[Rfam]
RNA sequence: UAAGCCGCGGUUCGUAACCAUCCCGCGUAAACAAAACUAGGAGGAG
Number, nucleotide and partner (000 for none) at each position: 001u000002a000003a000004g000005c000006c027007g026008c025009g024010g023011u000012u000013c000014g000015u039016a038017a000018c000019c000020a000021u000022c000023c010024c009025g008026c007027g006028u000029a000030a000031a000032c000033a000034a000035a000036a000037c000038u016039a015040g000041g000042a000043g000044g000045a000046g000
RNA: PreQ1 (pre queuosine) riboswitch aptamer
Organism: Paenibacillus sp. FSL H7-0737